RNA sequence: UGGUGAUGUCUACUUGCCAUUAUCGAUGUAGGCACUCGAUCAUGCUGUGGGUUUAUCCAAUAUAAACCUUAGACGCCAGUCGUCGGUAGUGUGGUGUGAGGGCGGGUUAAAUGCCCA
Numbered sequence: 001u002g003g004u005g006a007u008g009u010c011u012a013c014u015u016g017c018c019a020u021u022a023u024c025g026a027u028g029u030a031g032g033c034a035c036u037c038g039a040u041c042a043u044g045c046u047g048u049g050g051g052u053u054u055a056u057c058c059a060a061u062a063u064a065a066a067c068c069u070u071a072g073a074c075g076c077c078a079g080u081c082g083u084c085g086g087u088a089g090u091g092u093g094g095u096g097u098g099a100g101g102g103c104g105g106g107u108u109a110a111a112u113g114c115c116c117a
Base pairs, nucleotide, nucleotide: 001019002018003017004016007034008033009032010031011030012029013028035100036099037098038097039095040094041093042092043091044090045089046088049069050068051067052066053065054064055063056062072084073083074082075081104116105115106114107113
A member of the RNA family "epsC RNA" from Virgibacillus salinus, 117 nucleotides long. The family's consensus secondary structure is taken from published work. It scores 116 bits against the family's covariance model.